[Rfam]
RNA sequence: GCCCUGUGGUUGCUGGACACUGUUAUCUCCAUACAGUGCUUCAGUUAGUAGAAGAGGGCAAAAAAUAAUACUCUGACUUACGCAUGGAGUCUGAUACUUUAGCAGCCUCCAUAGCCCUGUCAUUGUUACAUUG
Numbered sequence: 001g002c003c004c005u006g007u008g009g010u011u012g013c014u015g016g017a018c019a020c021u022g023u024u025a026u027c028u029c030c031a032u033a034c035a036g037u038g039c040u041u042c043a044g045u046u047a048g049u050a051g052a053a054g055a056g057g058g059c060a061a062a063a064a065a066u067a068a069u070a071c072u073c074u075g076a077c078u079u080a081c082g083c084a085u086g087g088a089g090u091c092u093g094a095u096a097c098u099u100u101a102g103c104a105g106c107c108u109c110c111a112u113a114g115c116c117c118u119g120u121c122a123u124u125g126u127u128a129c130a131u132u133g
Base pairs, nucleotide, nucleotide: 001059002058003057004056007050008049010047012045013044014043015042016041017040019037020036021035022034023033071125074122075121076120077119082115083114084112085111086110087109089107091105092104093103095101
Rfam assigns this 133-nucleotide RNA sequence from Podarcis muralis to the family "Small nucleolar RNA SNORA84". By type it is an H/ACA-box small nucleolar RNA.